[Rfam]
RNA sequence: CAGGGGUUAACGACGAACAACAAGGAUGGAGGCGGGGGACCCAACCGGUCCACCGAUUUAAUUCAGGACCAGGAGCCGCUUGCGGCCCCUUGGGGUGAAGCCGUCGCCGUUUCGACGACGCCGGCCGGGUGACCUCUCCCACCCGAACCCGACAGCUGACCUCGUGGGCGCAUACGAGAGGACCU
Dot-bracket structure: ..........((.(...(............)((((((....((...............................................))(((.....(((..................)))..((((..........))))...))).........)))))).).))...............